Record summary:
Shown here is an 88-nucleotide RNA from Myotis myotis, a member of the family "mir-9195 microRNA precursor family". Rfam 15.1 lists 438 matches to the family in 7 species. The base pairs follow the family's consensus structure, which was predicted with RNAalifold.
[Rfam]
RNA sequence: AGAGGCCCAUCCGUGGCUAGGGUGGAACGCUUGCUUUGUCUCUGCGGUGACGAAGCAAGCAUUCUGCCAGGCCGCUCAUGCUGCCCAC
Numbered sequence: 001a002g003a004g005g006c007c008c009a010u011c012c013g014u015g016g017c018u019a020g021g022g023u024g025g026a027a028c029g030c031u032u033g034c035u036u037u038g039u040c041u042c043u044g045c046g047g048u049g050a051c052g053a054a055g056c057a058a059g060c061a062u063u064c065u066g067c068c069a070g071g072c073c074g075c076u077c078a079u080g081c082u083g084c085c086c087a088c
Base pairs, nucleotide, nucleotide: 004085005084006083013075014074015073016072017071018070021068022067023066024065025064026063027062029060030059031058032057033056034055038051039050040049042047